[Rfam]
RNA sequence: CUAAACCUAUUUUAAAUUUUUCGUAUAUCCUUAAUGAUUGGAUUAAGGGUUUCUACCGGGAACCGUAAAUUUCUGGCUACGAGAAUGUGCCUAGGCAUG
Number, nucleotide and partner (000 for none) at each position: 001c000002u000003a000004a000005a000006c000007c000008u000009a000010u000011u000012u000013u000014a000015a000016a000017u000018u085019u084020u083021u082022c081023g080024u079025a078026u000027a000028u000029c048030c047031u046032u045033a044034a043035u042036g000037a000038u000039u000040g000041g000042a035043u034044u033045a032046a031047g030048g029049g000050u000051u000052u000053c000054u000055a000056c000057c075058g074059g073060g072061a071062a070063c000064c000065g000066u000067a000068a000069a000070u062071u061072u060073c059074u058075g057076g000077c000078u025079a024080c023081g022082a021083g020084a019085a018086u000087g000088u000089g000090c000091c000092u000093a000094g000095g000096c000097a000098u000099g000
Purine riboswitch aptamer: a 99-nucleotide RNA from Paenibacillus stellifer. The organism belongs to Paenibacillus, within Bacteria. Gene Ontology term of the family: purine nucleobase biosynthetic process. Rfam describes the family as follows. Riboswitches are metabolite binding domains within certain messenger RNAs that serve as precision sensors for their corresponding targets. Allosteric rearrangement of mRNA structure is mediated by ligand binding, and this results in modulation of gene expression. A class of riboswitches that selectively recognises guanine and becomes saturated at concentrations as low as 5 nM. In Bacillus subtilis, this mRNA motif is located on at least five separate transcriptional units that together encode 17 genes that are mostly involved in purine transport and purine nucleotide biosynthesis. A search with the family's covariance model found it, with a score of 69 bits.